[Rfam]
Nucleotides: 584
Base pairs, nucleotide, nucleotide: 001475002474003472004471005470007469008468009467010466011465012464013463015459016458019423020422021421022420023419024316026314027313028312029311030310031309032308033307034305035304040055041054042053043052064300065299066298067297068296069295070294077124078123079121080120081119082118083117088101089100090099091098092097105116106115107114108113127289128288130287131286132285133284136283137282138278139277140276141274143272144271148187149186150185151184152183153182154163155162156161166179167178168177169176193266194265195264196263198234199233200232201231202230203229204228208223209222212221213220237257238256240254241253242252243251244250320375321374322373323372324371325370326369332363333362334361337356338355342351343350344349382413387408388407389406390405391404392403393402429451430450431449432448433447434446435445478583480580483576484575488570489569490568491567493565494564495563498560499559500558501557502556503555506552507551508550509549514545516543517542518541519540522538523537524536527534528533
Number, partner (000 for none) and nucleotide at each position: 001475u002474g003472a004471c005470g006000g007469g008468g009467a010466c011465c012464c013463g014000c015459a016458c017000a018000a019423g020422c021421g022420g023419u024316g025000g026314a027313g028312c029311a030310u031309g032308u033307g034305g035304u036000u037000u038000a039000a040055u041054u042053c043052g044000a045000a046000g047000c048000a049000a050000c051000g052043c053042g054041a055040a056000g057000a058000a059000c060000c061000u062000u063000a064300c065299c066298a067297a068296g069295u070294c071000u072000u073000g074000a075000c076000a077124u078123c079121c080120u081119u082118u083117g084000a085000c086000c087000a088101c089100u090099c091098u092097a093000g094000a095000g096000a097092u098091a099090g100089a101088g102000a103000a104000u105116u106115c107114c108113c109000u110000u111000c112000g113108g114107g115106g116105a117083c118082a119081a120080a121079g122000u123078g124077a125000c126000a127289g128288g129000u130287g131286g132285u133284g134000c135000a136283u137282g138278g139277u140276u141274g142000u143272c144271g145000u146000c147000a148187g149186c150185u151184c152183g153182u154163g155162u156161c157000g158000u159000g160000a161156g162155a163154u164000g165000u166179u167178g168177g169176g170000u171000u172000a173000a174000g175000u176169c177168c178167c179166g180000c181000a182153a183152c184151g185150a186149g187148c188000g189000c190000a191000a192000c193266c194265c195264u196263u197000a198234u199233g200232a201231u202230u203229a204228g205000u206000u207000g208223c209222c210000a211000g212221c213220a214000u215000u216000a217000a218000g219000u220213u221212g222209g223208g224000c225000a226000c227000u228204c229203u230202a231201g232200u233199c234198a235000g236000a237257c238256u239000g240254c241253c242252g243251g244250u245000g246000a247000c248000a249000a250244a251243c252242c253241g254240g255000a256238g257237g258000a259000a260000g261000g262000u263196g264195g265194g266193g267000a268000u269000g270000a271144c272143g273000u274141c275000a276140a277139a278138u279000c280000a281000u282137c283136a284133u285132g286131c287130c288128c289127c290000u291000u292000a293000u294070g295069a296068c297067u298066u299065g300064g301000g302000c303000u304035a305034c306000a307033c308032a309031c310030g311029u312028g313027c314026u315000a316024c317000a318000a319000u320375g321374g322373a323372u324371g325370g326369u327000a328000c329000a330000a331000c332363g333362a334361g335000c336000a337356g338355c339000a340000a341000c342351c343350c344349c345000g346000u347000g348000a349344g350343g351342g352000c353000a354000a355338g356337c357000g358000a359000a360000u361334c362333u363332c364000u365000u366000a367000a368000a369326g370325c371324c372323a373322u374321u375320c376000u377000c378000a379000g380000u381000u382413c383000g384000g385000a386000u387408u388407g389406u390405a391404g392403g393402c394000u395000g396000c397000a398000a399000c400000u401000c402393g403392c404391c405390u406389a407388c408387a409000u410000g411000a412000a413382g414000c415000c416000g417000g418000a419023a420022u421021c422020g423019c424000u425000a426000g427000u428000a429451a430450u431449c432448g433447c434446a435445a436000a437000u438000c439000a440000g441000c442000a443000c444000g445435u446434u447433g448432c449431g450430g451429u452000g453000a454000a455000u456000a457000c458016g459015u460000u461000c462000c463013c464012g465011g466010g467009u468008c469007u470005u471004g472003u473000a474002c475001a476000c477000a478583c479000c480580g481000c482000c483576c484575g485000u486000c487000a488570c489569a490568c491567c492000a493565c494564g495563a496000g497000a498560g499559u500558u501557u502556g503555u504000a505000a506552c507551a508550c509549c510000c511000g512000a513000a514545g515000c516543c517542g518541g519540u520000g521000g522538g523537g524536u525000a526000a527534c528533c529000g530000c531000a532000a533528g534527g535000a536524g537523c538522u539000a540519g541518c542517c543516g544000u545514c546000u547000a548000a549509g550508g551507u552506g553000g554000g555503a556502u557501a558500g559499a560498u561000g562000a563495u564494u565493g566000g567491g568490g569489u570488g571000a572000a573000g574000u575484c576483g577000u578000a579000a580480c581000a582000a583478g584000g
A member of the RNA family "Bacterial small subunit ribosomal RNA" from Granulicatella sp. WM01, 584 nucleotides of a longer RNA.
Rfam 15.1 lists 42,628 matches to the family in 10,626 species.
A search with the family's covariance model found it, with a score of 1628 bits.